[Rfam]
RNA sequence: UGCUCCUGUCAGUUUAGCUGGUUUGCAUCAGCUGACUAUUGUGCUGUGCAAAUCCAUGCAAAACUGACUGUGGCU
Number, nucleotide and partner (000 for none) at each position: 001u000002g000003c073004u072005c000006c070007u000008g068009u067010c066011a065012g064013u063014u062015u061016a000017g059018c058019u000020g055021g054022u052023u051024u050025g049026c048027a047028u046029c000030a045031g044032c043033u000034g000035a000036c000037u000038a000039u000040u000041g000042u000043g032044c031045u030046g028047u027048g026049c025050a024051a023052a022053u000054c021055c020056a000057u000058g018059c017060a000061a015062a014063a013064c012065u011066g010067a009068c008069u000070g006071u000072g004073g003074c000075u000
Annotation
A member of the RNA family "mir-19 microRNA precursor family" from Xenopus tropicalis, 75 nucleotides long. A reference for the family is Lagos-Quintana et al. (2001), "Identification of novel genes coding for small expressed RNAs", Science. It scores 66 bits against the family's covariance model. The organism belongs to Silurana, within Eukaryota. Gene Ontology terms of the family: RISC complex and miRNA-mediated post-transcriptional gene silencing.